RNA: FMN riboswitch aptamer (RFN element)
RNA sequence: UAGCGUCUUCAGGGCGGGGUGUGAUUCCCCACCGGCGGUAUAGCCCGCGAGCCGUAAGGCUGAUUCGGUUGAAUUCCGAAGCCGACAGUAUAGUCUGGAUGAAAGAAGAUAGAU
Numbered sequence: 001u002a003g004c005g006u007c008u009u010c011a012g013g014g015c016g017g018g019g020u021g022u023g024a025u026u027c028c029c030c031a032c033c034g035g036c037g038g039u040a041u042a043g044c045c046c047g048c049g050a051g052c053c054g055u056a057a058g059g060c061u062g063a064u065u066c067g068g069u070u071g072a073a074u075u076c077c078g079a080a081g082c083c084g085a086c087a088g089u090a091u092a093g094u095c096u097g098g099a100u101g102a103a104a105g106a107a108g109a110u111a112g113a114u
Stems, first nucleotide, its partner, number of pairs: 005110006017029003031094002033084002035048004043082002051060003064080005086097003